Shown here is a 72-nucleotide RNA from Bos indicus x Bos taurus, a member of the family "Small nucleolar RNA U2-30". A search with the family's covariance model found it, with a score of 79 bits. For this family Rfam cites "Guide RNAs with 5' Caps and Novel Box C/D snoRNA-like Domains for Modification of snRNAs in Metazoa" (Tycowski et al., Curr Biol, 2004). Pairs were carried over by alignment from the consensus structure, which is taken from published work.
RNA sequence: GAGCAAUGAUGAAAAGAUUUUACUGCGGGACUUUAUAUAACCAUGAAGGUUUCUACACUUGAUCUGAGCUCA
Number, nucleotide and partner (000 for none) at each position: 001g071002a070003g069004c068005a000006a000007u000008g000009a000010u000011g000012a000013a034014a033015a032016g031017a000018u029019u028020u000021u000022a000023c000024u000025g000026c000027g000028g019029g018030a000031c016032u015033u014034u013035a000036u000037a000038u000039a000040a000041c000042c000043a000044u000045g000046a000047a000048g000049g000050u000051u000052u000053c000054u000055a000056c000057a000058c000059u000060u000061g000062a000063u000064c000065u000066g000067a000068g004069c003070u002071c001072a000